[Rfam]
RNA sequence: CCAUAGCCUGAUUCAAGUAAUCCAGGAUAGGCUGUUUCCCAGCACGGCCUAUUCUCGAUUACUUGUUUCAGGAGGUGG
Numbered sequence: 001c002c003a004u005a006g007c008c009u010g011a012u013u014c015a016a017g018u019a020a021u022c023c024a025g026g027a028u029a030g031g032c033u034g035u036u037u038c039c040c041a042g043c044a045c046g047g048c049c050u051a052u053u054c055u056c057g058a059u060u061a062c063u064u065g066u067u068u069c070a071g072g073a074g075g076u077g078g
Base pairs, nucleotide, nucleotide: 002077003076004075007072008071009070010069011068014065015064016063017062018061019060020059021058022057024055025054026053027052028051029050030049031048032047033046
Background
The record is a 78-nucleotide RNA sequence from Synaphobranchus kaupii, which matches "mir-26 microRNA precursor family" in Rfam. It scores 85 bits against the family's covariance model. The base pairs follow the family's consensus structure, which was predicted with RNAalifold. The literature on the family includes a 2001 paper in Science by Lagos-Quintana et al., "Identification of novel genes coding for small expressed RNAs". The source organism's lineage runs through Eukaryota, Eumetazoa, Craniata, Vertebrata and Synaphobranchus.